glmS glucosamine-6-phosphate activated ribozyme aptamer: a 171-nucleotide RNA sequence from Pontibacillus yanchengensis. NCBI's taxonomy places the organism under Bacteria, Bacillota, Bacilli, Pontibacillus, Pontibacillus yanchengensis.
[Rfam]
RNA sequence: UCAUAAAUUAAAGCGCCUGGACUAUUUUCAGAACGCAAUGAAAAUAGUUGACGAGGAGGAGGUUCAUCGAUGAUCGGCGGAUGCCUCCCGGUUGAUAACACCUCAACCGAGACGUUUUGAUCUUAAAACAAAGGGGUGACUCUUUGCACAAAAGAUGGAAACAAGGUGUUA
Numbered sequence: 001u002c003a004u005a006a007a008u009u010a011a012a013g014c015g016c017c018u019g020g021a022c023u024a025u026u027u028u029c030a031g032a033a034c035g036c037a038a039u040g041a042a043a044a045u046a047g048u049u050g051a052c053g054a055g056g057a058g059g060a061g062g063u064u065c066a067u068c069g070a071u072g073a074u075c076g077g078c079g080g081a082u083g084c085c086u087c088c089c090g091g092u093u094g095a096u097a098a099c100a101c102c103u104c105a106a107c108c109g110a111g112a113c114g115u116u117u118u119g120a121u122c123u124u125a126a127a128a129c130a131a132a133g134g135g136g137u138g139a140c141u142c143u144u145u146g147c148a149c150a151a152a153a154g155a156u157g158g159a160a161a162c163a164a165g166g167u168g169u170u171a
Stems, first nucleotide, its partner, number of pairs: 020049008029040001058088005067077004089109006115161004120156002129146007